[Rfam]
RNA sequence: GGUGGUUCUCCGGUGACGCACCCGCCCAAACAGGCUCCCUCCUUUCUGGUUCCGGGGUGUGUCACCCAAGAACCGCA
Numbered sequence: 001g002g003u004g005g006u007u008c009u010c011c012g013g014u015g016a017c018g019c020a021c022c023c024g025c026c027c028a029a030a031c032a033g034g035c036u037c038c039c040u041c042c043u044u045u046c047u048g049g050u051u052c053c054g055g056g057g058u059g060u061g062u063c064a065c066c067c068a069a070g071a072a073c074c075g076c077a
Base pairs, nucleotide, nucleotide: 002076003075005073006072007071008070009069012066013065014064015063016062017061019059020058021057022056023055028051029050031048032047033046034045